A member of the RNA family "mir-2041 microRNA precursor family" from Nematostella vectensis, 86 nucleotides long. Pairs were carried over by alignment from the consensus structure, which was predicted with RNAalifold.
RNA sequence: AACCCAGGGGUAUUUUCCUCUAAAGUUUCACCCGCGAGAAAAUUUAUUCUCGUGAGUGAAACGUUAGAGGAAAAUACCUCUGGGUU
Numbered sequence: 001a002a003c004c005c006a007g008g009g010g011u012a013u014u015u016u017c018c019u020c021u022a023a024a025g026u027u028u029c030a031c032c033c034g035c036g037a038g039a040a041a042a043u044u045u046a047u048u049c050u051c052g053u054g055a056g057u058g059a060a061a062c063g064u065u066a067g068a069g070g071a072a073a074a075u076a077c078c079u080c081u082g083g084g085u086u
Stems, first nucleotide, its partner, number of pairs: 001086023025062007

The source organism's lineage runs through Eukaryota, Opisthokonta, Anthozoa, Hexacorallia and Nematostella.